The record is a 98-nucleotide RNA from Gossypium barbadense, which matches "MIR398 microRNA precursor family" in Rfam. On this family, see Zeng et al., Nucleic Acids Res 2010: "Conservation and divergence of microRNAs and their functions in Euphorbiaceous plants".
RNA sequence: GGAAACCCGACAGGGGCGACCUGAGAACACAUGAAAUAAACCAUAUCGAAAUCGAAAAACAAUCACAUGUGUUCUAAGGUCGACCCGGUUGGAUUCCU
Numbered sequence: 001g002g003a004a005a006c007c008c009g010a011c012a013g014g015g016g017c018g019a020c021c022u023g024a025g026a027a028c029a030c031a032u033g034a035a036a037u038a039a040a041c042c043a044u045a046u047c048g049a050a051a052u053c054g055a056a057a058a059a060c061a062a063u064c065a066c067a068u069g070u071g072u073u074c075u076a077a078g079g080u081c082g083a084c085c086c087g088g089u090u091g092g093a094u095u096c097c098u
Base pairs, nucleotide, nucleotide: 007092008091011088013086014085017082018081019080024075025074026073027072028071029070030069031068032067